This 118-nucleotide RNA sequence from Pontederia cordata belongs to the Rfam family "Plastid-psbA-1 3UTR RNA". Clan: Plastid-psbA 3UTR RNA clan. The base pairs follow the family's consensus structure, which was predicted with LocARNA. By type it is a cis-regulatory element. It is one of the family's seed sequences. Rfam describes the family as follows. Plastid psbA-1 is a non-coding RNA (ncRNA) present in plastids. It was identified in inverted repeat sequences in the 3 prime untranslate region (3UTR) of photosystem II quinone-binding protein (psbA). The organism belongs to Pontederia subgen. Pontederia, within Eukaryota.
[Rfam]
RNA sequence: GUUGAAGUUCCAUCUAUAAAUGGAUAAGACUUUUGUUUUAGUGUAUACGAAUUGUUGAGGUAAAUUGGCCAUACCCCUUAUCUUGUUUUAAUUUAAUAAGGGGUAUGGCUAAUUUGUU
Numbered sequence: 001g002u003u004g005a006a007g008u009u010c011c012a013u014c015u016a017u018a019a020a021u022g023g024a025u026a027a028g029a030c031u032u033u034u035g036u037u038u039u040a041g042u043g044u045a046u047a048c049g050a051a052u053u054g055u056u057g058a059g060g061u062a063a064a065u066u067g068g069c070c071a072u073a074c075c076c077c078u079u080a081u082c083u084u085g086u087u088u089u090a091a092u093u094u095a096a097u098a099a100g101g102g103g104u105a106u107g108g109c110u111a112a113u114u115u116g117u118u
Stems, first nucleotide, its partner, number of pairs: 009024005062115013076101003080097002